The record is a 91-nucleotide sequence from Cohnella candida, which matches "c-di-GMP-I riboswitch aptamer" in Rfam.
The base pairs follow the family's consensus structure, which is taken from published work.
The organism belongs to Cohnella, within Bacteria.
[Rfam]
RNA sequence: GUCGAUAAUUGGCAAACUUGCCGAAAGGCAAGGACGCAAAGCUACAGGGUCUAACGUUCGCUCGUCGAACUACGACAGCCUGGCUGCCGAA
Numbered sequence: 001g002u003c004g005a006u007a008a009u010u011g012g013c014a015a016a017c018u019u020g021c022c023g024a025a026a027g028g029c030a031a032g033g034a035c036g037c038a039a040a041g042c043u044a045c046a047g048g049g050u051c052u053a054a055c056g057u058u059c060g061c062u063c064g065u066c067g068a069a070c071u072a073c074g075a076c077a078g079c080c081u082g083g084c085u086g087c088c089g090a091a
Base pairs, nucleotide, nucleotide: 012037013036017032018031019030020029021028022027040085041084042083043082046081047080048079049076050075051074056070057069058068059067